[Rfam]
Rfam assigns this 55-nucleotide RNA sequence from Nostoc sp. T09 to the family "Nitrogen stress-induced RNA 1". A search with the family's covariance model found it, with a score of 57 bits. The source organism's lineage runs through Bacteria, Cyanobacteriota, Cyanophyceae, Nostocales and Nostoc. The family has 17 seed sequences and 962 matches in Rfam 15.1. The family's RNA type in Rfam is small RNA. The pairing is the family consensus, mapped onto this sequence.
RNA sequence: UGGUAGAUGCACCCUGAUAACUAACUCCCCUAGUUGGCUCAAACCCACUGGGGGA
Numbered sequence: 001u002g003g004u005a006g007a008u009g010c011a012c013c014c015u016g017a018u019a020a021c022u023a024a025c026u027c028c029c030c031u032a033g034u035u036g037g038c039u040c041a042a043a044c045c046c047a048c049u050g051g052g053g054g055a
Stems, first nucleotide, its partner, number of pairs: 002013003027054008036045002